[Rfam]
RNA: SAM riboswitch aptamer (S box leader)
Organism: Thermobifida cellulosilytica
RNA sequence: UGCUCAUCCAGAGGGGUGGAGGGACACGGCCCUGUGAAGCCCCGGCAACCAUCCCGGUGGACGUUGCUCGUCAGGUGCGAGGCGGCCGGGACAGGUGCCAACUCCGUCCCGGCGCCAGGGUGGCGCGCGGGGAAGAUGAGGG
Numbered sequence: 001u002g003c004u005c006a007u008c009c010a011g012a013g014g015g016g017u018g019g020a021g022g023g024a025c026a027c028g029g030c031c032c033u034g035u036g037a038a039g040c041c042c043c044g045g046c047a048a049c050c051a052u053c054c055c056g057g058u059g060g061a062c063g064u065u066g067c068u069c070g071u072c073a074g075g076u077g078c079g080a081g082g083c084g085g086c087c088g089g090g091a092c093a094g095g096u097g098c099c100a101a102c103u104c105c106g107u108c109c110c111g112g113c114g115c116c117a118g119g120g121u122g123g124c125g126c127g128c129g130g131g132g133a134a135g136a137u138g139a140g141g142g
Stems, first nucleotide, its partner, number of pairs: 001142001003140006013043005021032003026107004044099004049095002052090003103134001108131004